[Rfam]
RNA sequence: GCCGAGCUUGGUAAUGCGGGCUUGUGACUCAAAUGGGGGCAUUAAAGUUGUUAGAGAUCUGCCCAACCCAUUGGGUAGGGUCCAUGGAGUAUUGUUUGGCCCGUCCAUUCCAAGUAAGGAGUUGGGCUGUUGUCGUUGGGCGAAGGCCCAGGGGCGGCAUCCUUUAGAGAGAGAUUGAGGGAACCGCGUGAGGCUGGCUUCACAGAGCAGCGUCACCUCCCACUCCUGUCGGUGGAAGGAUAGCGGGCCGGUUCUUCAUAUCCCGGAAAUACUUGGUGGGUAGUUCUCAACCCGAUAACAACUUUU
Number, nucleotide and partner (000 for none) at each position: 001g040002c039003c038004g023005a022006g021007c020008u019009u018010g017011g000012u000013a000014a000015u000016g000017c010018g009019g008020g007021c006022u005023u004024g000025u000026g000027a000028c037029u036030c035031a000032a000033a000034u000035g030036g029037g028038g003039g002040c001041a000042u000043u000044a305045a304046a303047g302048u301049u300050g299051u298052u297053a296054g000055a000056g293057a000058u290059c000060u000061g285062c000063c283064c000065a281066a000067c000068c279069c278070a277071u276072u275073g274074g273075g272076u271077a270078g264079g263080g262081u000082c000083c000084a000085u000086g000087g256088a255089g254090u000091a253092u000093u000094g000095u000096u251097u250098g249099g248100c247101c246102c245103g244104u243105c239106c238107a000108u237109u236110c235111c234112a233113a000114g230115u000116a000117a227118g226119g225120a224121g223122u222123u000124g163125g162126g161127c000128u159129g158130u157131u156132g155133u154134c153135g000136u151137u150138g149139g148140g147141c146142g000143a000144a000145g000146g141147c140148c139149c138150a137151g136152g000153g134154g133155c132156g131157g130158c129159a128160u000161c126162c125163u124164u174165u173166a000167g000168a000169g000170a000171g000172a000173g165174a164175u000176u000177g219178a218179g217180g216181g000182a000183a000184c000185c000186g213187c212188g211189u210190g000191a000192g000193g000194c205195u204196g203197g000198c000199u000200u000201c000202a000203c196204a195205g194206a000207g000208c000209a000210g189211c188212g187213u186214c000215a000216c180217c179218u178219c177220c000221c000222a122223c121224u120225c119226c118227u117228g000229u000230c114231g000232g000233u112234g111235g110236a109237a108238g106239g105240a000241u000242a000243g104244c103245g102246g101247g100248c099249c098250g097251g096252u000253u091254c089255u088256u087257c000258a000259u000260a000261u000262c080263c079264c078265g000266g000267a000268a000269a000270u077271a076272c075273u074274u073275g072276g071277u070278g069279g068280g000281u065282a000283g063284u000285u061286c000287u000288c000289a000290a058291c000292c000293c056294g000295a000296u053297a052298a051299c050300a049301a048302c047303u046304u045305u044306u000
The record is a 306-nucleotide sequence from Cucurbita maxima, which matches "Plant signal recognition particle RNA" in Rfam.